[Rfam]
RNA sequence: AUAUUAUAAAUAAGAAUAACUCAUAUAAAUUAAAGGAUAUGGCUUUAGCGUUUCUACCACAUUACCGUAAAUAAUGUGACUAUGAGUAAUAAAAGUGAUAUU
Numbered sequence: 001a002u003a004u005u006a007u008a009a010a011u012a013a014g015a016a017u018a019a020c021u022c023a024u025a026u027a028a029a030u031u032a033a034a035g036g037a038u039a040u041g042g043c044u045u046u047a048g049c050g051u052u053u054c055u056a057c058c059a060c061a062u063u064a065c066c067g068u069a070a071a072u073a074a075u076g077u078g079a080c081u082a083u084g085a086g087u088a089a090u091a092a093a094a095g096u097g098a099u100a101u102u
Base pairs, nucleotide, nucleotide: 019087020086021085022084023083024082025081030048031047032046033045034044035043058078059077060076061075062074063073064072
RNA: Purine riboswitch aptamer